The record is an 88-nucleotide RNA sequence from Streptomyces sp. SID5910, which matches "ZMP/ZTP riboswitch aptamer (pfl RNA motif)" in Rfam.
[Rfam]
RNA sequence: CCGCGGGGCCGUGACUGGCGCGCAGGGAUGGAAAAACCAUCGGGGAGCGGCCCAGGAAGAACACGUGCCGUGCGCCUGGGCCGACCCG
Numbered sequence: 001c002c003g004c005g006g007g008g009c010c011g012u013g014a015c016u017g018g019c020g021c022g023c024a025g026g027g028a029u030g031g032a033a034a035a036a037c038c039a040u041c042g043g044g045g046a047g048c049g050g051c052c053c054a055g056g057a058a059g060a061a062c063a064c065g066u067g068c069c070g071u072g073c074g075c076c077u078g079g080g081c082c083g084a085c086c087c088g
Stems, first nucleotide, its partner, number of pairs: 004055001006053007015044002017076005028040004067081003